[Rfam]
RNA sequence: CCGCCCGGAGGUUACCAUCUGACAGCGUGAGACGCCCUCAGAUGUUUUUGUG
Numbered sequence: 001c002c003g004c005c006c007g008g009a010g011g012u013u014a015c016c017a018u019c020u021g022a023c024a025g026c027g028u029g030a031g032a033c034g035c036c037c038u039c040a041g042a043u044g045u046u047u048u049u050g051u052g
Base pairs, nucleotide, nucleotide: 016044017043018042019041020040021039022038025035026034027033028032
Description: ffh sRNA: a 52-nucleotide RNA sequence from Candidatus Tokpelaia sp. Taxonomically the source falls in Candidatus Tokpelaia (Bacteria, Pseudomonadati, Pseudomonadota, Hyphomicrobiales). It is annotated as a small RNA. A reference for the family is Meyer et al. (2009), "Identification of candidate structured RNAs in the marine organism 'Candidatus Pelagibacter ubique'", BMC Genomics. The match comes from Rfam's covariance-model search (46 bits).